[Rfam]
tRNA: a 73-nucleotide RNA from Thomasclavelia cocleata. It is annotated as a transfer RNA. Transfer RNA (tRNA) molecules are approximately 80 nucleotides in length. Its family is annotated with triplet codon-amino acid adaptor activity in the Gene Ontology.
RNA sequence: GGCCUGUUGGUGAAGUGGUUAACACUCUGGAUUCUCAUUCCAGCAUGCAGGGGUUCGAACCCCCUACAGGCUA
Numbered sequence: 001g002g003c004c005u006g007u008u009g010g011u012g013a014a015g016u017g018g019u020u021a022a023c024a025c026u027c028u029g030g031a032u033u034c035u036c037a038u039u040c041c042a043g044c045a046u047g048c049a050g051g052g053g054u055u056c057g058a059a060c061c062c063c064c065u066a067c068a069g070g071c072u073a
Stems, first nucleotide, its partner, number of pairs: 001072007010025003027043005049065005
Dot-bracket structure: (((((((..(((..........))).(((((.......))))).....(((((.......)))))))))))).